Overview: Rfam assigns this 139-nucleotide sequence from Thinocorus orbignyianus to the family "Small nucleolar RNA SNORA46". The family's RNA type in Rfam is H/ACA-box small nucleolar RNA.
RNA sequence: AGCACUAUUUUUAAACCUGUUGGUGGAAUUUCCUGCCCACCAUGGGUUACGCUAUGGUGCAAAAGAAUCUCCUGGCUCAUCAGAGCACGGCUGACCUUGCUCCGUUCAGCUGAUGCUUCUCUGAAGCAGAGGAACAGAA
Numbered sequence: 001a002g003c004a005c006u007a008u009u010u011u012u013a014a015a016c017c018u019g020u021u022g023g024u025g026g027a028a029u030u031u032c033c034u035g036c037c038c039a040c041c042a043u044g045g046g047u048u049a050c051g052c053u054a055u056g057g058u059g060c061a062a063a064a065g066a067a068u069c070u071c072c073u074g075g076c077u078c079a080u081c082a083g084a085g086c087a088c089g090g091c092u093g094a095c096c097u098u099g100c101u102c103c104g105u106u107c108a109g110c111u112g113a114u115g116c117u118u119c120u121c122u123g124a125a126g127c128a129g130a131g132g133a134a135c136a137g138a139a
Stems, first nucleotide, its partner, number of pairs: 002060007014048004021042006068134001070133004075127003082120001085116003088112004093107002
Annotation: ACA46 is a member of the H/ACA class of snoRNA that guide the sites of modification of uridines to pseudouridines.